[Rfam]
RNA: GAIT element
RNA sequence: GGAUUUUCAUUUUUAUAAUUGAAUAUGAAUAUCGUGACGAUACAUGUUGAAAGAAGAAACGAAAAUUC
Numbered sequence: 001g002g003a004u005u006u007u008c009a010u011u012u013u014u015a016u017a018a019u020u021g022a023a024u025a026u027g028a029a030u031a032u033c034g035u036g037a038c039g040a041u042a043c044a045u046g047u048u049g050a051a052a053g054a055a056g057a058a059a060c061g062a063a064a065a066u067u068c
Stems, first nucleotide, its partner, number of pairs: 002068002005065002010059003022048006032040003